[Rfam]
RNA sequence: UAUUAGGUUGGUGCAAAAGUAAUUGCAGUUCUUGCCGUUACUUCUAAUGGCAAGAACUGCAAUUACUUUUGUACUAACCUAAUG
Numbered sequence: 001u002a003u004u005a006g007g008u009u010g011g012u013g014c015a016a017a018a019g020u021a022a023u024u025g026c027a028g029u030u031c032u033u034g035c036c037g038u039u040a041c042u043u044c045u046a047a048u049g050g051c052a053a054g055a056a057c058u059g060c061a062a063u064u065a066c067u068u069u070u071g072u073a074c075u076a077a078c079c080u081a082a083u084g
Stems, first nucleotide, its partner, number of pairs: 001084040